[Rfam]
RNA: Bacterial RNase P class A
RNA sequence: AAGGUACAACAGACAAUAGCUUGAAAUAAUUCAAGAGGAAAGUCCGGGCUGCAGUGAAGUAGGGUUCCAUCUAAAGGAUGGCUAGGGAGACCUAAGGGACAGUGCAACAGAAAGUAAACCGCCAUUUAUGGUAAGGGUGAAAGGGUAAGGUAAGAGCUUACCAGUGUUUUGAGUAAUCUUAACAGCUAUGUAAACCCAACCCGCAGCAAGAAGAGACGGUAUUUAACUUCACAGUUUUUCUCUUCGCAGGAUUGUUUAAGUAAUUUAACAACUAGAUAAAUUAUUGUCUAAUACAAAACGCGGCUUACAGUUGUACCUUUAUU
Numbered sequence: 001a002a003g004g005u006a007c008a009a010c011a012g013a014c015a016a017u018a019g020c021u022u023g024a025a026a027u028a029a030u031u032c033a034a035g036a037g038g039a040a041a042g043u044c045c046g047g048g049c050u051g052c053a054g055u056g057a058a059g060u061a062g063g064g065u066u067c068c069a070u071c072u073a074a075a076g077g078a079u080g081g082c083u084a085g086g087g088a089g090a091c092c093u094a095a096g097g098g099a100c101a102g103u104g105c106a107a108c109a110g111a112a113a114g115u116a117a118a119c120c121g122c123c124a125u126u127u128a129u130g131g132u133a134a135g136g137g138u139g140a141a142a143g144g145g146u147a148a149g150g151u152a153a154g155a156g157c158u159u160a161c162c163a164g165u166g167u168u169u170u171g172a173g174u175a176a177u178c179u180u181a182a183c184a185g186c187u188a189u190g191u192a193a194a195c196c197c198a199a200c201c202c203g204c205a206g207c208a209a210g211a212a213g214a215g216a217c218g219g220u221a222u223u224u225a226a227c228u229u230c231a232c233a234g235u236u237u238u239u240c241u242c243u244u245c246g247c248a249g250g251a252u253u254g255u256u257u258a259a260g261u262a263a264u265u266u267a268a269c270a271a272c273u274a275g276a277u278a279a280a281u282u283a284u285u286g287u288c289u290a291a292u293a294c295a296a297a298a299c300g301c302g303g304c305u306u307a308c309a310g311u312u313g314u315a316c317c318u319u320u321a322u323u
Stems, first nucleotide, its partner, number of pairs: 001319010012288007020035006040306003044303003048299001049206004062202005067081005082096001083094004097197002102195002104191003119136002121132004144162006164186001165184004171178002210245007252271005258265002